[Rfam]
RNA sequence: AACCACACUAUUAAUGAAUGGAUUCACCCAUGAUAUGACGUGGCUGUUCCACUUAGGAUGAGGACGUGACAUCCUAUUACCAGCCAUAACACUAAAUUAAUAGGAUGCCACGUCCUUAUCCUAGGUUGAACAACCACGUCAUCUGGUGAGUCUAUUCAUUGAUAGUGUGGUU
Numbered sequence: 001a002a003c004c005a006c007a008c009u010a011u012u013a014a015u016g017a018a019u020g021g022a023u024u025c026a027c028c029c030a031u032g033a034u035a036u037g038a039c040g041u042g043g044c045u046g047u048u049c050c051a052c053u054u055a056g057g058a059u060g061a062g063g064a065c066g067u068g069a070c071a072u073c074c075u076a077u078u079a080c081c082a083g084c085c086a087u088a089a090c091a092c093u094a095a096a097u098u099a100a101u102a103g104g105a106u107g108c109c110a111c112g113u114c115c116u117u118a119u120c121c122u123a124g125g126u127u128g129a130a131c132a133a134c135c136a137c138g139u140c141a142u143c144u145g146g147u148g149a150g151u152c153u154a155u156u157c158a159u160u161g162a163u164a165g166u167g168u169g170g171u172u
Base pairs, nucleotide, nucleotide: 001172002171003170004169005168006167007166009164010163011162012161013160014159015158017156018155019154021152022151023150024149025148026147027146028145033144035142036141037140038139039138041136042135043134045132046131047130048129051126052125054123055122057120058119063114064113065112070107071106072105073104074103075102076101077100078099079098086097087096
Dot-bracket structure: (((((((.(((((((.(((.((((((((....(.(((((.(((.((((..((.((.((....(((....((((((((((......((........))))))))))))....)))....)).)).))..)))).))).))))).))))))))).))).))))))).)))))))